The record is a 34-nucleotide RNA sequence from Rattus norvegicus, which matches "Iron response element I" in Rfam.
The literature on the family includes a 1987 paper in Science by Hentze et al., "Identification of the iron-responsive element for the translational regulation of human ferritin mRNA".
Rfam 15.1 lists 6,829 matches to the family in 599 species.
The base pairs follow the family's consensus structure, which is taken from published work.
Its family is annotated with response to iron ion in the Gene Ontology.
By type it is a cis-regulatory element.
The organism belongs to Rattus, within Eukaryota.

[Rfam]
RNA sequence: CUGUGUCUUGCUUCAACAGUGUUUGGCAGAACGG
Number, nucleotide and partner (000 for none) at each position: 001c034002u033003g032004u031005g000006u030007c029008u028009u000010g027011c000012u000013u026014c025015a024016a023017c021018a000019g000020u000021g017022u000023u016024u015025g014026g013027c010028a008029g007030a006031a004032c003033g002034g001